[Rfam]
RNA sequence: CCUAGGGGAGCGUUUUGCCUAUGUGGACAUAAAGCAUGCCCUUAAGGACGCGUUUUAUGUCCACGUAGGCAAAACGCUCCCUCAGGG
Numbered sequence: 001c002c003u004a005g006g007g008g009a010g011c012g013u014u015u016u017g018c019c020u021a022u023g024u025g026g027a028c029a030u031a032a033a034g035c036a037u038g039c040c041c042u043u044a045a046g047g048a049c050g051c052g053u054u055u056u057a058u059g060u061c062c063a064c065g066u067a068g069g070c071a072a073a074a075c076g077c078u079c080c081c082u083c084a085g086g087g
Stems, first nucleotide, its partner, number of pairs: 001086003005082017023064013037050002040047002